[Rfam]
The family of this 106-nucleotide sequence from Phytoactinopolyspora alkaliphila is "SAM riboswitch aptamer (S box leader)". A search with the family's covariance model found it, with a score of 89 bits. The source organism's lineage runs through Bacteria, Actinomycetota, Actinomycetes, Jiangellales and Phytoactinopolyspora. The family's consensus secondary structure is taken from published work.

RNA sequence: UACUCAUCCAGAGGGGCAGAGGGACCGGCCCGGUGAAGCCCCGGCAACCACCCGCAACACGGCGGGUUUGGUGCCAAGUCCGGCCCGUUCGCGGGGAAGAUGAGGA
Numbered sequence: 001u002a003c004u005c006a007u008c009c010a011g012a013g014g015g016g017c018a019g020a021g022g023g024a025c026c027g028g029c030c031c032g033g034u035g036a037a038g039c040c041c042c043g044g045c046a047a048c049c050a051c052c053c054g055c056a057a058c059a060c061g062g063c064g065g066g067u068u069u070g071g072u073g074c075c076a077a078g079u080c081c082g083g084c085c086c087g088u089u090c091g092c093g094g095g096g097a098a099g100a101u102g103a104g105g106a
Stems, first nucleotide, its partner, number of pairs: 001106001003104006013042005021031003025083004043075004048071002050067004079098001084095004